[Rfam]
RNA sequence: GAGAUAUGAUGAAUAAUUUAAUUGGUCCGUGUUUCUGAAUAAACAGUGACUGAUAACCUUACCAUAUUCUGAUCUC
Numbered sequence: 001g002a003g004a005u006a007u008g009a010u011g012a013a014u015a016a017u018u019u020a021a022u023u024g025g026u027c028c029g030u031g032u033u034u035c036u037g038a039a040u041a042a043a044c045a046g047u048g049a050c051u052g053a054u055a056a057c058c059u060u061a062c063c064a065u066a067u068u069c070u071g072a073u074c075u076c
Stems, first nucleotide, its partner, number of pairs: 001076004
RNA: Small nucleolar RNA SNORD18